[Rfam]
RNA sequence: AAUGGAAGCUGCAAGAACCAGCCAUGUGGACAAAUGAAAAACUCCCCUUUGUCUACAUUUUGCAGCAGUCCUACAUAAACAUGGAGGUCUCUGUCUGACUUAAGACAGCUGGCUAAGUCUGAUCGUUCCCCUCCAUACAAC
Numbered sequence: 001a002a003u004g005g006a007a008g009c010u011g012c013a014a015g016a017a018c019c020a021g022c023c024a025u026g027u028g029g030a031c032a033a034a035u036g037a038a039a040a041a042c043u044c045c046c047c048u049u050u051g052u053c054u055a056c057a058u059u060u061u062g063c064a065g066c067a068g069u070c071c072u073a074c075a076u077a078a079a080c081a082u083g084g085a086g087g088u089c090u091c092u093g094u095c096u097g098a099c100u101u102a103a104g105a106c107a108g109c110u111g112g113c114u115a116a117g118u119c120u121g122a123u124c125g126u127u128c129c130c131c132u133c134c135a136u137a138c139a140a141c
Stems, first nucleotide, its partner, number of pairs: 004071003008066005025057007036048001083134005091125001093123003097119006

A member of the RNA family "Small Cajal body specific RNA 3" from Sciurus vulgaris, 141 nucleotides long. Pairs were carried over by alignment from the consensus structure, which was predicted with RNAalifold. By type it is a small Cajal body RNA. For this family Rfam cites "Cajal body-specific small nuclear RNAs: a novel class of 2'-O-methylation and pseudouridylation guide RNAs" (Darzacq et al., EMBO J, 2002). scaRNAs are a specific class of small nuclear RNAs which localise to the Cajal bodies and guide the modification of RNA polymerase II transcribed spliceosomal RNAs U1, U2, U4, U5 and U12.